[Rfam]
RNA sequence: UGGUAGAUGCACCCUGAUAACUAAUCUCCCCUAGCUGGCUAACACCACUGGGGGUUUUUUUG
Numbered sequence: 001u002g003g004u005a006g007a008u009g010c011a012c013c014c015u016g017a018u019a020a021c022u023a024a025u026c027u028c029c030c031c032u033a034g035c036u037g038g039c040u041a042a043c044a045c046c047a048c049u050g051g052g053g054g055u056u057u058u059u060u061u062g
Stems, first nucleotide, its partner, number of pairs: 002013003028054007036047003
RNA: Nitrogen stress-induced RNA 1
Organism: Trichormus azollae